A member of the RNA family "SAM riboswitch aptamer (S box leader)" from Pedobacter heparinus, 110 nucleotides long.
[Rfam]
RNA sequence: UGCUUAUAGAGAAAGAUGGAGGGAUUAGACCCUGCGAAGUCUUGGCAACCUGUGCUUACAAGGUGCUACAUUCUACAGGAAAUGCAGCUGUACUUCCUGACAGAUAAGUG
Numbered sequence: 001u002g003c004u005u006a007u008a009g010a011g012a013a014a015g016a017u018g019g020a021g022g023g024a025u026u027a028g029a030c031c032c033u034g035c036g037a038a039g040u041c042u043u044g045g046c047a048a049c050c051u052g053u054g055c056u057u058a059c060a061a062g063g064u065g066c067u068a069c070a071u072u073c074u075a076c077a078g079g080a081a082a083u084g085c086a087g088c089u090g091u092a093c094u095u096c097c098u099g100a101c102a103g104a105u106a107a108g109u110g
Stems, first nucleotide, its partner, number of pairs: 001110007013043005021032003026075004044067004049063002051060003071102001076099006
Overview: Its family is annotated with regulation of gene expression in the Gene Ontology. The sequence is in the family's curated seed alignment. Taxonomically the source falls in Pedobacter heparinus (Bacteria, Pseudomonadati, Sphingobacteriales, Pedobacter).